[Rfam]
RNA sequence: GGAUGUGAGGGUGAUCUGGCUGUGACAUCUGUCACCCCAUUGAUUGCCCGCGUUGAUUCGGCUGAUCUGGCUGGCUAGGCGGGUGUCCCCUCCCUCCCUCACCACUCCAUGUGCGUCCCUCCUGAAGCUGCGCGCUCAGUCGAAGAGGACGACCUUCCCCGAUAGAGACAUACUGUUCAUCGGCCAAGGCUAUAGGGUAGCUGUGCUCCCCUGCUAGAACCUCCAAACAAGCUCAAGGUUCUAAGUGUUGGCACCUCAGUUUUAACAUCCUGUUAAAAAUAAACAUUACUUUAAUGCAGGAGUAUCUCCGUGU
Numbered sequence: 001g002g003a004u005g006u007g008a009g010g011g012u013g014a015u016c017u018g019g020c021u022g023u024g025a026c027a028u029c030u031g032u033c034a035c036c037c038c039a040u041u042g043a044u045u046g047c048c049c050g051c052g053u054u055g056a057u058u059c060g061g062c063u064g065a066u067c068u069g070g071c072u073g074g075c076u077a078g079g080c081g082g083g084u085g086u087c088c089c090c091u092c093c094c095u096c097c098c099u100c101a102c103c104a105c106u107c108c109a110u111g112u113g114c115g116u117c118c119c120u121c122c123u124g125a126a127g128c129u130g131c132g133c134g135c136u137c138a139g140u141c142g143a144a145g146a147g148g149a150c151g152a153c154c155u156u157c158c159c160c161g162a163u164a165g166a167g168a169c170a171u172a173c174u175g176u177u178c179a180u181c182g183g184c185c186a187a188g189g190c191u192a193u194a195g196g197g198u199a200g201c202u203g204u205g206c207u208c209c210c211c212u213g214c215u216a217g218a219a220c221c222u223c224c225a226a227a228c229a230a231g232c233u234c235a236a237g238g239u240u241c242u243a244a245g246u247g248u249u250g251g252c253a254c255c256u257c258a259g260u261u262u263u264a265a266c267a268u269c270c271u272g273u274u275a276a277a278a279a280u281a282a283a284c285a286u287u288a289c290u291u292u293a294a295u296g297c298a299g300g301a302g303u304a305u306c307u308c309c310g311u312g313u
Base pairs, nucleotide, nucleotide: 001108002107003106005102006101007100008099009098010097011096013093018090019089024087025086026085027084028083029082030081031080032079033078035074036073037070038069039068042067043066044065045064046062047061048060119167120166121165122139123138124137125136127135128134140162141161142160147158148157149156200260201259202258207253213252214251221247223245283313284312285311288303289302290301291300292299

7SK RNA: a 313-nucleotide sequence from Jacana jacana.
From the family's description: 7SK was discovered as an abundant small nuclear RNA in the mid-70s but a possible function has only recently been suggested.
On this family, see Blencowe, Curr Biol 2002: "Transcription: surprising role for an elusive small nuclear RNA".
By type it is a non-coding RNA gene.
Lineage of the source: Eukaryota > Metazoa > Gnathostomata > Amniota > Jacana.